[Rfam]
About this RNA
Rfam assigns this 181-nucleotide RNA sequence from Tepidibacter thalassicus to the family "6S / SsrS RNA". It is annotated as a non-coding RNA gene. E. coli 6S RNA was the first non coding RNA to be sequenced, but its function was unknown until recently. A search with the family's covariance model found it, with a score of 72 bits. The base pairs follow the family's consensus structure, which is taken from published work.

RNA sequence: CAGAACCUAAAAUGUACGUUAUAACCUAGUAAAUUCAACCUACAAGUAGUAUACGGGAGUUCGGGUUCAUCUUUUGACAACAGGCCUCAAAAUCAGAGGAGGUUGAAGACUGAUGACAGAACACCCACCUGGGUGAAGCUCGGGUGUGAAUUUAAUAGGUAGACGGCAUUAUGGGUGUAUA
Dot-bracket structure: ..(.(((((.(((((.(((...........(((.((((((..............(((.((((.(.(.((((..(.....((...((((.......))))..)).....)..)))))).)))).)))................))).))).))).........)))))))).))))).)...